Notes
The record is a 308-nucleotide RNA sequence from Darwinula stevensoni, which matches "Nuclear RNase P" in Rfam. A reference for the family is Frank and Pace (1998), "Ribonuclease P: unity and diversity in a tRNA processing ribozyme", Annu Rev Biochem.
RNA sequence: UUCCCUCGACAAGGGAAGGCAAGGGGCAACGUCCAGGGUCUCACCCAGUACCCUUCACUUCUGCCCUUGGGAAGGUCUGAGACAAAGGCCAUCUACCCUCUAGACGGGGGUCCCGUCAAUCACGGGAGUGGGGGAAUAGAGAACGGCUUGGCAAAUCAUAUUGUUGUCUGAGACGCCUUUGCCACGGUCAUUUAUGCCCAAGGCGAGGCUGAGACCAGGUGAUGUGCUUUAGUUGGAAUCCUACCAUGGCUGGCUUGAAAUAGUCUGAUCCUUCCAUUCAACUCAAUUCAGACUACUCUGUCAAGGAA
Numbered sequence: 001u002u003c004c005c006u007c008g009a010c011a012a013g014g015g016a017a018g019g020c021a022a023g024g025g026g027c028a029a030c031g032u033c034c035a036g037g038g039u040c041u042c043a044c045c046c047a048g049u050a051c052c053c054u055u056c057a058c059u060u061c062u063g064c065c066c067u068u069g070g071g072a073a074g075g076u077c078u079g080a081g082a083c084a085a086a087g088g089c090c091a092u093c094u095a096c097c098c099u100c101u102a103g104a105c106g107g108g109g110g111u112c113c114c115g116u117c118a119a120u121c122a123c124g125g126g127a128g129u130g131g132g133g134g135a136a137u138a139g140a141g142a143a144c145g146g147c148u149u150g151g152c153a154a155a156u157c158a159u160a161u162u163g164u165u166g167u168c169u170g171a172g173a174c175g176c177c178u179u180u181g182c183c184a185c186g187g188u189c190a191u192u193u194a195u196g197c198c199c200a201a202g203g204c205g206a207g208g209c210u211g212a213g214a215c216c217a218g219g220u221g222a223u224g225u226g227c228u229u230u231a232g233u234u235g236g237a238a239u240c241c242u243a244c245c246a247u248g249g250c251u252g253g254c255u256u257g258a259a260a261u262a263g264u265c266u267g268a269u270c271c272u273u274c275c276a277u278u279c280a281a282c283u284c285a286a287u288u289c290a291g292a293c294u295a296c297u298c299u300g301u302c303a304a305g306g307a308a
Stems, first nucleotide, its partner, number of pairs: 001308004009301003022068005036053004041047001077291005087251004096110005111127006128247004133242002148232003
Overview:
The match comes from Rfam's covariance-model search (97 bits).